[Rfam]
RNA sequence: CUCUCCUCGUGUUCACUGCUGGCCUUCAUGUUCAUAUUCAUAAGGCACGCGGUGAAUGCCAAGAGAG
Dot-bracket structure: ..(((...((((((((.((...((((...(.......)...))))...)).))))))))...)))..